[Rfam]
RNA: nadA riboswitch
RNA sequence: GGCUUCAACAUCCCCGUUUUUUCAUCCCGUUUCAUCACGGUCAGGCUGCCGCUGUUCUGGCCUGCCGCAAGAAGCCAUUUCCCGGAUGGGGAGAGGCUGAAGCC
Numbered sequence: 001g002g003c004u005u006c007a008a009c010a011u012c013c014c015c016g017u018u019u020u021u022u023c024a025u026c027c028c029g030u031u032u033c034a035u036c037a038c039g040g041u042c043a044g045g046c047u048g049c050c051g052c053u054g055u056u057c058u059g060g061c062c063u064g065c066c067g068c069a070a071g072a073a074g075c076c077a078u079u080u081c082c083c084g085g086a087u088g089g090g091g092a093g094a095g096g097c098u099g100a101a102g103c104c
Stems, first nucleotide, its partner, number of pairs: 001104007013090001014088001016097007023089001025086003